[Rfam]
RNA sequence: GUGAAAUAAAUCACAUAUCAAACAUACACCCCUUUGUUUGAACGUGAACAUUUCUCCCAUCCCCUUUGUGUAAAGAGGCAUUUGCAAAUGGCAAAUGCCUCUUU
Numbered sequence: 001g002u003g004a005a006a007u008a009a010a011u012c013a014c015a016u017a018u019c020a021a022a023c024a025u026a027c028a029c030c031c032c033u034u035u036g037u038u039u040g041a042a043c044g045u046g047a048a049c050a051u052u053u054c055u056c057c058c059a060u061c062c063c064c065u066u067u068g069u070g071u072a073a074a075g076a077g078g079c080a081u082u083u084g085c086a087a088a089u090g091g092c093a094a095a096u097g098c099c100u101c102u103u104u
Base pairs, nucleotide, nucleotide: 003054004053005052006051007050011047012046013045014044019040020039021038022037023036024035075101076100077099078098079097080096081095082094083093084092085091
Overview: The record is a 104-nucleotide RNA sequence from Ureibacillus terrenus, which matches "RNA Staph. aureus E (RoxS)" in Rfam. It is annotated as a small RNA. Lineage of the source: Bacteria > Bacillota > Caryophanales > Caryophanaceae > Ureibacillus. A reference for the family is Durand et al. (2015), "A nitric oxide regulated small RNA controls expression of genes involved in redox homeostasis in Bacillus subtilis", PLoS Genet. Rfam's curators write: It was shown to be regulated by the presence of nitric oxide (NO). In Bacillus subtilis it controls expression of genes with functions related to oxidative stress and oxidation-reduction reactions and it was renamed RoxS (for related to oxidative stress). The match comes from Rfam's covariance-model search (90 bits).